[Rfam]
RNA: Y RNA
RNA sequence: GGCUGGUCCGAGUGUAGCGGCGUUUGCAGCUAGCUGAUGGCCACCAGGUACAGAUUCCUUUGUUCCUUCUCCAUUCCCACUGUUUCACUUGACUAGUUAAA
Numbered sequence: 001g002g003c004u005g006g007u008c009c010g011a012g013u014g015u016a017g018c019g020g021c022g023u024u025u026g027c028a029g030c031u032a033g034c035u036g037a038u039g040g041c042c043a044c045c046a047g048g049u050a051c052a053g054a055u056u057c058c059u060u061u062g063u064u065c066c067u068u069c070u071c072c073a074u075u076c077c078c079a080c081u082g083u084u085u086c087a088c089u090u091g092a093c094u095a096g097u098u099a100a101a
Stems, first nucleotide, its partner, number of pairs: 002097007010090002014086001016081002019078002022076001028064003032060002